[Rfam]
RNA sequence: AGCACUGAGGAGCGUUGCGACAGGAUUUCCUGCCAGGCUCAGUGACUCGGCAAGUUUCAACGACGCUCACCCAAC
Dot-bracket structure: ..((((((............((((....))))......))))))...............................

SAH (S-adenosyl-L-homocysteine) riboswitch aptamer: a 75-nucleotide RNA from Ferriphaselus amnicola.
The family's consensus secondary structure is taken from published work.